[Rfam]
Shown here is a 68-nucleotide RNA from Neofusicoccum parvum, a member of the family "bZIP non canonical Hac1/Xbp1 intron". It is annotated as a small RNA. Rfam's curators write: bZIP intron RNA is a non-canonical intron that was first reported in HAC1 gene in yeast and XBP1 gene in Metazoa. The family has 112 seed sequences and 1,325 matches in Rfam 15.1. Pairs were carried over by alignment from the consensus structure, which was predicted with RNAfold. On this family, see Hooks and Griffiths-Jones, RNA Biol 2011: "Conserved RNA structures in the non-canonical Hac1/Xbp1 intron". Taxonomically the source falls in Neofusicoccum parvum (Eukaryota, Pezizomycotina, leotiomyceta, dothideomyceta). It scores 50 bits against the family's covariance model.

RNA sequence: UGUGGAGCCCGACCAGACACAACAUUCUGCAGCAAUGUUGUGCGACCUGCAGUGUCGGUCGGCCCACA
Numbered sequence: 001u002g003u004g005g006a007g008c009c010c011g012a013c014c015a016g017a018c019a020c021a022a023c024a025u026u027c028u029g030c031a032g033c034a035a036u037g038u039u040g041u042g043c044g045a046c047c048u049g050c051a052g053u054g055u056c057g058g059u060c061g062g063c064c065c066a067c068a
Stems, first nucleotide, its partner, number of pairs: 001068005010061005021039006044056003